This 246-nucleotide RNA from Paramicrosporidium saccamoebae belongs to the Rfam family "Nuclear RNase P". A reference for the family is Frank and Pace (1998), "Ribonuclease P: unity and diversity in a tRNA processing ribozyme", Annu Rev Biochem. It scores 106 bits against the family's covariance model.
RNA sequence: GCAGAGGGAAGCUUCCGCAUAGGAGUGUCUCGGCAUUCUUGGGAAGGUCUGAGAAAAGCCAGCUAGUCUAGACGGCAUCCGGCUAAACGCUGGAGUGGAUGACCAGAAACGGCCUUGGGCCUUACCUCCCCUGGAUGCGAUGUUGAGCGAAAGGGGGAGGACUGGAACGCCAUCCACAGGUGGCUUGGUAGUGCAAUGCGGAAGGCGGCUACGGUCGUAACUCAAUUCAGACUACUCUUCCUCUGC
Numbered sequence: 001g002c003a004g005a006g007g008g009a010a011g012c013u014u015c016c017g018c019a020u021a022g023g024a025g026u027g028u029c030u031c032g033g034c035a036u037u038c039u040u041g042g043g044a045a046g047g048u049c050u051g052a053g054a055a056a057a058g059c060c061a062g063c064u065a066g067u068c069u070a071g072a073c074g075g076c077a078u079c080c081g082g083c084u085a086a087a088c089g090c091u092g093g094a095g096u097g098g099a100u101g102a103c104c105a106g107a108a109a110c111g112g113c114c115u116u117g118g119g120c121c122u123u124a125c126c127u128c129c130c131c132u133g134g135a136u137g138c139g140a141u142g143u144u145g146a147g148c149g150a151a152a153g154g155g156g157g158a159g160g161a162c163u164g165g166a167a168c169g170c171c172a173u174c175c176a177c178a179g180g181u182g183g184c185u186u187g188g189u190a191g192u193g194c195a196a197u198g199c200g201g202a203a204g205g206c207g208g209c210u211a212c213g214g215u216c217g218u219a220a221c222u223c224a225a226u227u228c229a230g231a232c233u234a235c236u237c238u239u240c241c242u243c244u245g246c
Stems, first nucleotide, its partner, number of pairs: 001246004007240003012204007021040008049230005059179001064077001066076003078094006095177007114160002205218005